This 178-nucleotide RNA sequence from Pleurocapsa sp. CCALA 161 belongs to the Rfam family "Antisense RNA which regulates isiA expression".
RNA sequence: GAUAGCCAAAAAUAAUUGCGGGAUUUAAAGUAGGCUCGGUAACUAGUCGUACAUUACCUGCCACAGAAUCAUAUAUUCCGCCCCAAAACAUUGCUUUGCCGACAAAUAGUAAUGCUGCUACGCCUAAAAAUAUCAGGUGAUGACCCAAAAUAAAACCCAAUUGCUUGGGAUCGUUCCA
Numbered sequence: 001g002a003u004a005g006c007c008a009a010a011a012a013u014a015a016u017u018g019c020g021g022g023a024u025u026u027a028a029a030g031u032a033g034g035c036u037c038g039g040u041a042a043c044u045a046g047u048c049g050u051a052c053a054u055u056a057c058c059u060g061c062c063a064c065a066g067a068a069u070c071a072u073a074u075a076u077u078c079c080g081c082c083c084c085a086a087a088a089c090a091u092u093g094c095u096u097u098g099c100c101g102a103c104a105a106a107u108a109g110u111a112a113u114g115c116u117g118c119u120a121c122g123c124c125u126a127a128a129a130a131u132a133u134c135a136g137g138u139g140a141u142g143a144c145c146c147a148a149a150a151u152a153a154a155a156c157c158c159a160a161u162u163g164c165u166u167g168g169g170a171u172c173g174u175u176c177c178a
Stems, first nucleotide, its partner, number of pairs: 136175006144169005

The organism belongs to Pleurocapsa, within Bacteria. A search with the family's covariance model found it, with a score of 144 bits.